Record summary:
The record is a 139-nucleotide RNA from Halopseudomonas laoshanensis, which matches "PrrF RNA" in Rfam. For this family Rfam cites "Identification of tandem duplicate regulatory small RNAs in Pseudomonas aeruginosa involved in iron homeostasis" (Wilderman et al., Proc Natl Acad Sci U S A, 2004). NCBI's taxonomy places the organism under Bacteria, Gammaproteobacteria, Pseudomonadales, Pseudomonadaceae, Halopseudomonas. Rfam classes the family as a small RNA. About the family: PrrF RNA is a small RNA involved in iron homeostasis and is found exclusively in Pseudomonas species. Its family is annotated with sRNA-mediated gene silencing in the Gene Ontology.
[Rfam]
RNA sequence: UUGACGUGAGAAUGAGAAUCUAUAUCAUUAGCAACAAGUCGUCGCGAGAUGACUUGUUGAUAACAGCUUGCUCCAAGCGGUUAUCUCCUCAUCAGGCUAAUCACGGAUUAGGCCCGCUCAUUGAGCGGGCCAUUUUUUU
Numbered sequence: 001u002u003g004a005c006g007u008g009a010g011a012a013u014g015a016g017a018a019u020c021u022a023u024a025u026c027a028u029u030a031g032c033a034a035c036a037a038g039u040c041g042u043c044g045c046g047a048g049a050u051g052a053c054u055u056g057u058u059g060a061u062a063a064c065a066g067c068u069u070g071c072u073c074c075a076a077g078c079g080g081u082u083a084u085c086u087c088c089u090c091a092u093c094a095g096g097c098u099a100a101u102c103a104c105g106g107a108u109u110a111g112g113c114c115c116g117c118u119c120a121u122u123g124a125g126c127g128g129g130c131c132a133u134u135u136u137u138u139u
Stems, first nucleotide, its partner, number of pairs: 035056009064079001066078005087096003111131008